[Rfam]
RNA sequence: GGAUAAGGAUGAACAUAAUAUUGGUCUCGUUCGUCGUAAACGUGUCUUUUGAUACCUUGCCGACCAUACUGAUAUAUCACCACCCAUAAUCUGAGUCC
Number, nucleotide and partner (000 for none) at each position: 001g098002g097003a096004u095005a000006a000007g000008g000009a000010u000011g000012a000013a000014c000015a000016u000017a000018a000019u000020a000021u000022u000023g000024g000025u000026c000027u000028c000029g000030u000031u000032c000033g000034u000035c000036g000037u000038a000039a000040a000041c000042g000043u000044g058045u000046c000047u000048u000049u000050u000051g000052a000053u000054a000055c000056c000057u000058u044059g000060c000061c000062g000063a000064c000065c000066a000067u000068a000069c000070u000071g000072a000073u000074a000075u000076a000077u000078c000079a000080c000081c000082a000083c000084c000085c000086a000087u000088a000089a000090u000091c000092u000093g000094a000095g004096u003097c002098c001
Rfam assigns this 98-nucleotide sequence from Striga asiatica to the family "Small nucleolar RNA Z43". For this family Rfam cites "The high diversity of snoRNAs in plants: identification and comparative study of 120 snoRNA genes from Oryza sativa" (Chen et al., Nucleic Acids Res, 2003). NCBI's taxonomy places the organism under Eukaryota, Embryophyta, Magnoliopsida, Mesangiospermae, Striga. Rfam links the family to the GO terms nucleolus and RNA processing.